[Rfam]
Shown here is a 97-nucleotide RNA from Rummeliibacillus stabekisii, a member of the family "Guanidine-I riboswitch aptamer". On this family, see Nelson et al., Mol Cell 2017: "Metabolism of Free Guanidine in Bacteria Is Regulated by a Widespread Riboswitch Class". It scores 82 bits against the family's covariance model.
RNA sequence: AUGAUUGAUUUCUAGGGUUCCGCAAUUUGAUUUGGUCUGGUCCGAGAGAAAUCACAUAGCAAUUGCUAUGCCACGGAAGGAGAAAAGCCUGGGAGAU
Numbered sequence: 001a002u003g004a005u006u007g008a009u010u011u012c013u014a015g016g017g018u019u020c021c022g023c024a025a026u027u028u029g030a031u032u033u034g035g036u037c038u039g040g041u042c043c044g045a046g047a048g049a050a051a052u053c054a055c056a057u058a059g060c061a062a063u064u065g066c067u068a069u070g071c072c073a074c075g076g077a078a079g080g081a082g083a084a085a086a087g088c089c090u091g092g093g094a095g096a097u
Stems, first nucleotide, its partner, number of pairs: 007053006015043002020040002022037001023034003055070006072092001074095001078090003